The family of this 64-nucleotide RNA sequence from Shimia litoralis is "L2-Alphaproteobacteria ribosomal protein leader".
Lineage of the source: Bacteria > Pseudomonadati > Pseudomonadota > Roseobacteraceae > Shimia.
For this family Rfam cites "Discovery of 20 novel ribosomal leader candidates in bacteria and archaea" (Eckert and Weinberg, BMC Microbiol, 2020).
The base pairs follow the family's consensus structure, which is taken from published work.
RNA sequence: GGCCACCUACGGGGGGCUAAACAUAAGGCGGGUUUACCCGCCGUUGCUAAACGGAAGACAGAAA
Numbered sequence: 001g002g003c004c005a006c007c008u009a010c011g012g013g014g015g016g017c018u019a020a021a022c023a024u025a026a027g028g029c030g031g032g033u034u035u036a037c038c039c040g041c042c043g044u045u046g047c048u049a050a051a052c053g054g055a056a057g058a059c060a061g062a063a064a
Stems, first nucleotide, its partner, number of pairs: 001018004006014003027042006